Rfam assigns this 117-nucleotide sequence from Paraburkholderia tagetis to the family "ALIL pseudoknot". A search with the family's covariance model found it, with a score of 113 bits. The family's RNA type in Rfam is cis-regulatory element.

[Rfam]
RNA sequence: AGCGUAUUUCGCACAGGCGGAGCUCGACCGCCGACCGAAGUGAUGAUCACGUUCAUCGAUGAUCAUCGGCACGUCUACGGGGUCGAGCCGAUCUGCAGGGUGCUGCCGAUCGCACCG
Number, nucleotide and partner (000 for none) at each position: 001a000002g000003c000004g000005u000006a000007u000008u000009u000010c000011g000012c000013a000014c000015a000016g032017g031018c030019g029020g028021a000022g000023c000024u000025c000026g000027a000028c020029c019030g018031c017032c016033g000034a000035c000036c000037g000038a000039a000040g000041u000042g000043a000044u000045g000046a000047u000048c000049a000050c000051g000052u000053u000054c000055a000056u000057c000058g000059a000060u000061g000062a000063u000064c000065a000066u000067c000068g000069g000070c000071a000072c000073g000074u000075c000076u000077a000078c117079g116080g115081g000082g113083u000084c000085g000086a000087g000088c000089c112090g111091a000092u109093c108094u000095g106096c105097a104098g103099g000100g000101u000102g000103c098104u097105g096106c095107c000108g093109a092110u000111c090112g089113c082114a000115c080116c079117g078